[Rfam]
RNA sequence: CCCUCCGAAGUUUCCCUCAGGAUAGCUGGCGUUCUGAGAUAUAAACAGUUUUAUCCGGUAAAGCGAAUGAUUAGAGGCAUUGGGGGCGAAACGCUCUCAACCUAUUCUCAAACUUUAAAUGGGUGAGAAGUCUCACUCGCUCAAUUGGAGUGGGGCAUUGAAUGUGAGUGCCAAGUGGGCCAUUUUUGGUAAGCAGAACUGGCGCUGUGGGAUGAACCAAACGUACGGAUAAGGUGCCUAACGCGACGCUCAUGAGACACCACAAAAGGUGUUGGUUGGUCUAGACAGCAGGACGGUGGCCAUGGAAGUCGGAAACCGCUAAGGAGUGUGUAAUAACUCACCUGCCGAAUCAACCAGCCCUGAAAAUGGAUGGCGCUGGAGCGUUGGACCUAUACCGUACCGUCAUCGCAAGCUGAGCCGGUCACGUGUGGGCCGAGAAAUGUGGUGCAUGACUCAGGCAUGGAGUGGCGGUGACGAGUAGGAGGGUCGCUGUGGUGAGCGGGAAGCCUCGGACGUGAGUCUGGGUGGAGCCGCCACAGGUGCAGAU
Numbered sequence: 001c002c003c004u005c006c007g008a009a010g011u012u013u014c015c016c017u018c019a020g021g022a023u024a025g026c027u028g029g030c031g032u033u034c035u036g037a038g039a040u041a042u043a044a045a046c047a048g049u050u051u052u053a054u055c056c057g058g059u060a061a062a063g064c065g066a067a068u069g070a071u072u073a074g075a076g077g078c079a080u081u082g083g084g085g086g087c088g089a090a091a092c093g094c095u096c097u098c099a100a101c102c103u104a105u106u107c108u109c110a111a112a113c114u115u116u117a118a119a120u121g122g123g124u125g126a127g128a129a130g131u132c133u134c135a136c137u138c139g140c141u142c143a144a145u146u147g148g149a150g151u152g153g154g155g156c157a158u159u160g161a162a163u164g165u166g167a168g169u170g171c172c173a174a175g176u177g178g179g180c181c182a183u184u185u186u187u188g189g190u191a192a193g194c195a196g197a198a199c200u201g202g203c204g205c206u207g208u209g210g211g212a213u214g215a216a217c218c219a220a221a222c223g224u225a226c227g228g229a230u231a232a233g234g235u236g237c238c239u240a241a242c243g244c245g246a247c248g249c250u251c252a253u254g255a256g257a258c259a260c261c262a263c264a265a266a267a268g269g270u271g272u273u274g275g276u277u278g279g280u281c282u283a284g285a286c287a288g289c290a291g292g293a294c295g296g297u298g299g300c301c302a303u304g305g306a307a308g309u310c311g312g313a314a315a316c317c318g319c320u321a322a323g324g325a326g327u328g329u330g331u332a333a334u335a336a337c338u339c340a341c342c343u344g345c346c347g348a349a350u351c352a353a354c355c356a357g358c359c360c361u362g363a364a365a366a367u368g369g370a371u372g373g374c375g376c377u378g379g380a381g382c383g384u385u386g387g388a389c390c391u392a393u394a395c396c397g398u399a400c401c402g403u404c405a406u407c408g409c410a411a412g413c414u415g416a417g418c419c420g421g422u423c424a425c426g427u428g429u430g431g432g433c434c435g436a437g438a439a440a441u442g443u444g445g446u447g448c449a450u451g452a453c454u455c456a457g458g459c460a461u462g463g464a465g466u467g468g469c470g471g472u473g474a475c476g477a478g479u480a481g482g483a484g485g486g487u488c489g490c491u492g493u494g495g496u497g498a499g500c501g502g503g504a505a506g507c508c509u510c511g512g513a514c515g516u517g518a519g520u521c522u523g524g525g526u527g528g529a530g531c532c533g534c535c536a537c538a539g540g541u542g543c544a545g546a547u
Stems, first nucleotide, its partner, number of pairs: 001486006011024001013022003027173007049128008061116001062114002068110003073105001075103003080100006087093001130156009179203004184198005208219003223400005233390003242387001244386001247383003267361003271358010288345005294318003300312002319323001324339001328337002401476009488542001490539008499531002506526002512521003
Notes
Rfam assigns this 547-nucleotide part of an RNA from Oryzias sinensis to the family "Eukaryotic large subunit ribosomal RNA". Gene Ontology terms of the family: structural constituent of ribosome and ribosome.